[Rfam]
Nucleotides: 048
Base pairs, nucleotide, nucleotide: 001022002021003020004019005018006017011048012047013046014045026038027037028036029035030034
Number, partner (000 for none) and nucleotide at each position: 001022c002021c003020g004019g005018g006017c007000a008000a009000a010000c011048g012047c013046g014045g015000g016000c017006g018005c019004c020003c021002g022001g023000u024000c025000a026038g027037a028036c029035g030034c031000u032000u033000c034030g035029c036028g037027u038026c039000c040000a041000a042000g043000c044000g045014c046013c047012g048011c
Background
The family of this 48-nucleotide RNA sequence is "chrB-b RNA". Rfam's curators put it in the seed alignment.